[Rfam]
Nucleotides: 074
Stems, first nucleotide, its partner, number of pairs: 001074004
Number, partner (000 for none) and nucleotide at each position: 001074u002073g003072c004071a005000g006000a007000u008000g009000a010000u011000g012000u013000g014000a015000a016000a017000g018000a019000a020000u021000a022000u023000u024000u025000g026000c027000u028000a029000u030000c031000u032000g033000a034000g035000u036000g037000a038000c039000g040000g041000u042000g043000c044000u045000g046000a047000c048000a049000a050000c051000a052000u053000c054000a055000c056000c057000a058000c059000c060000a061000a062000g063000a064000u065000c066000g067000c068000u069000g070000a071004u072003g073002c074001a
Shown here is a 74-nucleotide RNA from Merops nubicus, a member of the family "Small nucleolar RNA SNORD24". A search with the family's covariance model found it, with a score of 79 bits. A reference for the family is Qu et al. (1995), "U24, a novel intron-encoded small nucleolar RNA with two 12 nt long, phylogenetically conserved complementarities to 28S rRNA", Nucleic Acids Res.